[Rfam]
RNA sequence: CCACACAGCAUUAUACCCAGAGUCUGUCCCCAGACAUUGCACCUGGCACUGUAAAUUAAAUUAAUUGAAUU
Numbered sequence: 001c002c003a004c005a006c007a008g009c010a011u012u013a014u015a016c017c018c019a020g021a022g023u024c025u026g027u028c029c030c031c032a033g034a035c036a037u038u039g040c041a042c043c044u045g046g047c048a049c050u051g052u053a054a055a056u057u058a059a060a061u062u063a064a065u066u067g068a069a070u071u
Stems, first nucleotide, its partner, number of pairs: 005052004017046004022035005
RNA: U1A polyadenylation inhibition element (PIE)